[Rfam]
RNA sequence: AGGUCUGAUACUCUAUCUUUCAGUGAUGUUCUAAAACCUGGAACAUAGUUUGUCUGGCCUGG
Numbered sequence: 001a002g003g004u005c006u007g008a009u010a011c012u013c014u015a016u017c018u019u020u021c022a023g024u025g026a027u028g029u030u031c032u033a034a035a036a037c038c039u040g041g042a043a044c045a046u047a048g049u050u051u052g053u054c055u056g057g058c059c060u061g062g
Stems, first nucleotide, its partner, number of pairs: 001060005007054004013048004018043004
RNA: mir-7385 microRNA precursor family
Organism: Monodelphis domestica